[Rfam]
RNA sequence: UGAGUUGGUUGCUAGGGUUCCGGCUUUGCGCAAUGCAGGGCGCUGGUCCGAGAGCGGCCGCUUGUGGGGGAGACAUCCCCACAGGUGCACGGCGGGACAAAAGCCCGGGAGAC
Numbered sequence: 001u002g003a004g005u006u007g008g009u010u011g012c013u014a015g016g017g018u019u020c021c022g023g024c025u026u027u028g029c030g031c032a033a034u035g036c037a038g039g040g041c042g043c044u045g046g047u048c049c050g051a052g053a054g055c056g057g058c059c060g061c062u063u064g065u066g067g068g069g070g071a072g073a074c075a076u077c078c079c080c081a082c083a084g085g086u087g088c089a090c091g092g093c094g095g096g097a098c099a100a101a102a103g104c105c106c107g108g109g110a111g112a113c
Base pairs, nucleotide, nucleotide: 007059008058009057010056011055012054015049016048020046021045022043023041024040025039026038027037028036060086061085062084063083064082065081066080067079068078069077088108090111094106095105096104
The family of this 113-nucleotide sequence from Afipia broomeae is "Guanidine-I riboswitch aptamer".
This family represents a conserved RNA structure found upstream of the ykkC and yxkD genes in Bacillus subtilis and related genes in other bacteria. The function of this family is unclear although it has been suggested that it may function to switch on efflux pumps and detoxification systems in response to harmful environmental molecules.